[Rfam]
Nucleotides: 045
Stems, first nucleotide, its partner, number of pairs: 006027005016037001
Number, partner (000 for none) and nucleotide at each position: 001000a002000a003000u004000u005000u006027u007026g008025u009024g010023g011000u012000u013000c014000g015000a016037a017000a018000c019000c020000a021000u022000c023010c024009c025008a026007c027006a028000u029000a030000a031000a032000a033000a034000a035000a036000c037016u038000a039000g040000g041000a042000g043000u044000g045000a
This 45-nucleotide RNA from Holzapfeliella floricola belongs to the Rfam family "PreQ1 (pre queuosine) riboswitch aptamer". Rfam 15.1 lists 873 matches to the family in 692 species. Its family is annotated with queuosine biosynthetic process in the Gene Ontology. Rfam describes the family as follows. This family is a bacterial riboswitch that binds to the metabolite preQ1, an intermediate in the biosynthesis of the modified nucleoside queuosine from GTP. One example of this riboswitch is located in the leader of the Bacillus subtilis ykvJKLM (queCDEF) operon which encodes four genes necessary for queuosine production. PreQ1 binding to the riboswitch aptamer is thought to induce premature transcription termination within the leader to down-regulate expression of these genes. NCBI's taxonomy places the organism under Bacteria, Bacillota, Bacilli, Lactobacillales, Holzapfeliella floricola.